[Rfam]
RNA sequence: UCAAUAGACGGCUAGGGUUCCGGUCUGCGCGAGCGGGUGUCUGGUCCGAGAGCUAUCGACCCCUUUGAGGGGUUACACGGCGGGACAAAAGCCCUGGAGAU
Numbered sequence: 001u002c003a004a005u006a007g008a009c010g011g012c013u014a015g016g017g018u019u020c021c022g023g024u025c026u027g028c029g030c031g032a033g034c035g036g037g038u039g040u041c042u043g044g045u046c047c048g049a050g051a052g053c054u055a056u057c058g059a060c061c062c063c064u065u066u067g068a069g070g071g072g073u074u075a076c077a078c079g080g081c082g083g084g085a086c087a088a089a090a091g092c093c094c095u096g097g098a099g100a101u
Base pairs, nucleotide, nucleotide: 007057008056010054011053012052015047016046020044021043022041023038024037025036026035027034028033058074059073060072061071062070063069064068076096078099082094083093084092
Dot-bracket structure: ......((.(((..((...(((((((((....))))))..).)).))....))).))(((((((...))))))).(.[...(((.......))).)..]..
About this RNA:
This 101-nucleotide sequence from Serpentinimonas raichei belongs to the Rfam family "Guanidine-I riboswitch aptamer". Pairs were carried over by alignment from the consensus structure.